A member of the RNA family "mir-2807 microRNA precursor family" from Bombyx mori, 82 nucleotides long. The base pairs follow the family's consensus structure, which was predicted with RNAalifold. Rfam 15.1 lists 5,120 matches to the family in 8 species.
RNA sequence: UUAAAAAAAUAGUAUGGAGUUGGAACGUUUGCCUAGGUUUGCCGCUAGGUGCGCUGUUCCAACUGCAUACAAAUUUGAGUUA
Numbered sequence: 001u002u003a004a005a006a007a008a009a010u011a012g013u014a015u016g017g018a019g020u021u022g023g024a025a026c027g028u029u030u031g032c033c034u035a036g037g038u039u040u041g042c043c044g045c046u047a048g049g050u051g052c053g054c055u056g057u058u059c060c061a062a063c064u065g066c067a068u069a070c071a072a073a074u075u076u077g078a079g080u081u082a
Stems, first nucleotide, its partner, number of pairs: 006076003010072001012070003016066001018064010033049002037045002
For this family Rfam cites "MicroRNAs of Bombyx mori identified by Solexa sequencing" (Liu et al., BMC Genomics, 2010).